Fungal signal recognition particle RNA: a 308-nucleotide RNA sequence from Hymenoscyphus albidus. Rfam links the family to the GO terms signal recognition particle, endoplasmic reticulum targeting, SRP-dependent cotranslational protein targeting to membrane, signal sequence recognition and signal recognition particle, plasma membrane targeting. Its Rfam clan is "SRP clan". The organism belongs to Hymenoscyphus, within Eukaryota. It is annotated as a non-coding RNA gene.
RNA sequence: CAGCUGUAAUGGCUGCAAACCCAGGAAGACAUCAGCAUCCCGCUUGUCAUCCACCAAGUUUGGCUCUUCAAUGAGCCAACUACCAACAGUGCCCAGUUCGAACAUGGCGGUGGCUCCCCACUCGUGCAGGAAACUCACGAUCUGCUGCGCGGGGCCCUAAGCAAUGAAGAUUACCUCUUGAGGGAGGCCUGACUCUGCAGAGAGAUCUUCACCGCGGUGUGGCGGUAUUGGAAUACACUUGUUGCGUGGUUUGGUGGGUGUGAGUGGGUUGAGCGUCGACCUCUCUUUUUUUUGUUUUGGGGAUUUUU
Numbered sequence: 001c002a003g004c005u006g007u008a009a010u011g012g013c014u015g016c017a018a019a020c021c022c023a024g025g026a027a028g029a030c031a032u033c034a035g036c037a038u039c040c041c042g043c044u045u046g047u048c049a050u051c052c053a054c055c056a057a058g059u060u061u062g063g064c065u066c067u068u069c070a071a072u073g074a075g076c077c078a079a080c081u082a083c084c085a086a087c088a089g090u091g092c093c094c095a096g097u098u099c100g101a102a103c104a105u106g107g108c109g110g111u112g113g114c115u116c117c118c119c120a121c122u123c124g125u126g127c128a129g130g131a132a133a134c135u136c137a138c139g140a141u142c143u144g145c146u147g148c149g150c151g152g153g154g155c156c157c158u159a160a161g162c163a164a165u166g167a168a169g170a171u172u173a174c175c176u177c178u179u180g181a182g183g184g185a186g187g188c189c190u191g192a193c194u195c196u197g198c199a200g201a202g203a204g205a206u207c208u209u210c211a212c213c214g215c216g217g218u219g220u221g222g223c224g225g226u227a228u229u230g231g232a233a234u235a236c237a238c239u240u241g242u243u244g245c246g247u248g249g250u251u252u253g254g255u256g257g258g259u260g261u262g263a264g265u266g267g268g269u270u271g272a273g274c275g276u277c278g279a280c281c282u283c284u285c286u287u288u289u290u291u292u293u294g295u296u297u298u299g300g301g302g303a304u305u306u307u308u
Stems, first nucleotide, its partner, number of pairs: 001015004017306003021302002026298006039268003043262001045260001050258008061078006081248002084244005089238003093231005098225003102220004107215004112156001114154004119149001122140005128135002157161001165211007175204005184195003